[Rfam]
RNA: mir-399 microRNA precursor family
RNA sequence: AGAUGCAUUACGGGGUAAUUACUCCUUGGGCAGUAAGACGCACAGUCCUACUGCCAAGGGAGAUUUGCCCUGCAAUUCAUCG
Numbered sequence: 001a002g003a004u005g006c007a008u009u010a011c012g013g014g015g016u017a018a019u020u021a022c023u024c025c026u027u028g029g030g031c032a033g034u035a036a037g038a039c040g041c042a043c044a045g046u047c048c049u050a051c052u053g054c055c056a057a058g059g060g061a062g063a064u065u066u067g068c069c070c071u072g073c074a075a076u077u078c079a080u081c082g
Base pairs, nucleotide, nucleotide: 005078007076008075009074011072012071013070014069015068016067017066018065022062023061024060025059029055030054031053032052033051034050035049